The family of this 113-nucleotide sequence from Anolis carolinensis is "Small nucleolar RNA SNORD124". The family's RNA type in Rfam is C/D-box small nucleolar RNA. The organism belongs to Anolis, within Eukaryota.
RNA sequence: AACUCCUUUGGAAGGAAUGAUGUUUGCAUCCCACUCACACCAAGAUAAGGAUUCUGAAUAUAUUUGCAUGUGAUUGAACACGCAAAUGGCUCUCUGACCUUCCACUGGACUGU
Numbered sequence: 001a002a003c004u005c006c007u008u009u010g011g012a013a014g015g016a017a018u019g020a021u022g023u024u025u026g027c028a029u030c031c032c033a034c035u036c037a038c039a040c041c042a043a044g045a046u047a048a049g050g051a052u053u054c055u056g057a058a059u060a061u062a063u064u065u066g067c068a069u070g071u072g073a074u075u076g077a078a079c080a081c082g083c084a085a086a087u088g089g090c091u092c093u094c095u096g097a098c099c100u101u102c103c104a105c106u107g108g109a110c111u112g113u
Base pairs, nucleotide, nucleotide: 009104010103011102012101013100014099015098